[Rfam]
RNA sequence: GAAUAAUGAGAAUCUCGAGCAAAAUAGCCUAAAAAGAGGAAGUUUCUUCAUGGCCUUUUGCCUGGACCCACGGAUGAUCGGUUUAUCACAGCGGUGGUCCACGGGGUUGCCGUAGAAAUGCGGCCGCCUUCACAUUUUGAAAAGAGAUCGACGAAGCGUUAAA
Numbered sequence: 001g002a003a004u005a006a007u008g009a010g011a012a013u014c015u016c017g018a019g020c021a022a023a024a025u026a027g028c029c030u031a032a033a034a035a036g037a038g039g040a041a042g043u044u045u046c047u048u049c050a051u052g053g054c055c056u057u058u059u060g061c062c063u064g065g066a067c068c069c070a071c072g073g074a075u076g077a078u079c080g081g082u083u084u085a086u087c088a089c090a091g092c093g094g095u096g097g098u099c100c101a102c103g104g105g106g107u108u109g110c111c112g113u114a115g116a117a118a119u120g121c122g123g124c125c126g127c128c129u130u131c132a133c134a135u136u137u138u139g140a141a142a143a144g145a146g147a148u149c150g151a152c153g154a155a156g157c158g159u160u161a162a163a
Stems, first nucleotide, its partner, number of pairs: 004156001012148005019061006027054003034048005063101005104129004109124006130140002
RNA: Molybdenum/Tungsten riboswitch aptamer (Moco RNA motif)